[Rfam]
Notes: Mammalian CPEB3 ribozyme: a 76-nucleotide RNA from Alligator mississippiensis. Pairs were carried over by alignment from the consensus structure, which is taken from published work.

RNA sequence: GGUUGCAAAUUCAAGGCCAUGGCAGAAGCGUUCACAGCACAGCCUGUCAGAUUCCAAAGAAUCUGUGAAUUCUGUU
Numbered sequence: 001g002g003u004u005g006c007a008a009a010u011u012c013a014a015g016g017c018c019a020u021g022g023c024a025g026a027a028g029c030g031u032u033c034a035c036a037g038c039a040c041a042g043c044c045u046g047u048c049a050g051a052u053u054c055c056a057a058a059g060a061a062u063c064u065g066u067g068a069a070u071u072c073u074g075u076u
Stems, first nucleotide, its partner, number of pairs: 015044003021076007028040001030038001048065007
About the family: The mammalian CPEB3 ribozyme is a self cleaving RNA located in the second intron of the CPEB3 gene which belongs to a family of genes regulating messenger RNA polyadenylation. This ribozyme is highly conserved and found only in mammals. The CPEB3 ribozyme is structurally and biochemically related to the human hepatitis delta virus (HDV) ribozyme and the HDV ribozyme is proposed to have arisen from the human transcriptome. There is currently only one other known self cleaving ribozyme in mammals, the CoTC motif.